[Rfam]
RNA: Small nucleolar RNA SNORD103/SNORD85
Organism: Catharus ustulatus
RNA sequence: UCUGGCAGUGAUGCCACACUUGCCCUCACUGAGAACUCUGUUCAAUAAUGAGCCUCUCCUGUGCUGGAGCAGCUGAGCCAGA
Numbered sequence: 001u002c003u004g005g006c007a008g009u010g011a012u013g014c015c016a017c018a019c020u021u022g023c024c025c026u027c028a029c030u031g032a033g034a035a036c037u038c039u040g041u042u043c044a045a046u047a048a049u050g051a052g053c054c055u056c057u058c059c060u061g062u063g064c065u066g067g068a069g070c071a072g073c074u075g076a077g078c079c080a081g082a
Stems, first nucleotide, its partner, number of pairs: 001082006